[Rfam]
RNA sequence: GGAUCCGUGGUGUAGGGGUUAACAUGCCUGCCUGUCACGCAGGAGAUCGUCGGUUCAAUCCGAUCGGAUCCG
Numbered sequence: 001g002g003a004u005c006c007g008u009g010g011u012g013u014a015g016g017g018g019u020u021a022a023c024a025u026g027c028c029u030g031c032c033u034g035u036c037a038c039g040c041a042g043g044a045g046a047u048c049g050u051c052g053g054u055u056c057a058a059u060c061c062g063a064u065c066g067g068a069u070c071c072g
Base pairs, nucleotide, nucleotide: 001071002070003069004068005067006066007065010025011024012023013022027043028042029041030040031039049064050063051062052061053060
Shown here is a 72-nucleotide RNA from Sporolactobacillus inulinus, a member of the family "tRNA". The family's RNA type in Rfam is transfer RNA.